A member of the RNA family "Lysine riboswitch aptamer" from Klebsiella indica, 222 nucleotides long.

[Rfam]
Nucleotides: 222
Base pairs, nucleotide, nucleotide: 006217007216008215009214010213011212016079017078018077019076020075021074022073024071032063033062034061035060036059037058083112084111085110086109087108091104092103093102094101113139114138115137116136118135119134120133121132122131123130141207142206143205144204145203
Number, partner (000 for none) and nucleotide at each position: 001000a002000u003000u004000g005000c006217c007216a008215g009214a010213a011212g012000a013000g014000g015000u016079g017078c018077g019076u020075u021074g022073c023000c024071c025000a026000g027000g028000u029000a030000a031000c032063c033062g034061u035060a036059u037058u038000g039000g040000a041000g042000g043000a044000a045000c046000c047000a048000g049000u050000c051000c052000g053000g054000a055000g056000a057000a058037a059036a060035u061034a062033c063032g064000u065000g066000a067000g068000g069000g070000g071024g072000a073022g074021c075020a076019a077018c078017g079016c080000c081000g082000a083112g084111g085110u086109g087108a088000a089000a090000a091104g092103c093102g094101u095000c096000u097000g098000g099000u100000u101094a102093c103092g104091c105000c106000c107000a108087u109086c110085a111084c112083c113139g114138g115137c116136c117000g118135c119134a120133g121132g122131g123130g124000c125000u126000g127000a128000a129000u130123c131122c132121c133120c134119u135118g136116g137115g138114u139113u140000g141207u142206c143205a144204c145203c146000a147000g148000a149000a150000a151000c152000g153000u154000u155000c156000g157000c158000a159000g160000u161000c162000g163000g164000g165000c166000g167000u168000u169000u170000c171000a172000u173000a174000c175000u176000c177000g178000c179000c180000g181000c182000a183000u184000c185000a186000g187000c188000g189000a190000u191000g192000c193000g194000a195000g196000u197000c198000u199000a200000c201000a202000a203145g204144g205143u206142g207141g208000a209000g210000c211000a212011c213010u214009u215008c216007u217006g218000g219000g220000u221000g222000a